The family of this 36-nucleotide sequence from Dokdonia pacifica is "DUF805b RNA". It scores 42 bits against the family's covariance model.

RNA sequence: UAGGUGGAUGCUGAAAAACCUUUAAUAGAGUAAGCA
Numbered sequence: 001u002a003g004g005u006g007g008a009u010g011c012u013g014a015a016a017a018a019c020c021u022u023u024a025a026u027a028g029a030g031u032a033a034g035c036a
Stems, first nucleotide, its partner, number of pairs: 002021004010035003

Source information
It is annotated as a cis-regulatory element. The base pairs follow the family's consensus structure, which is taken from published work.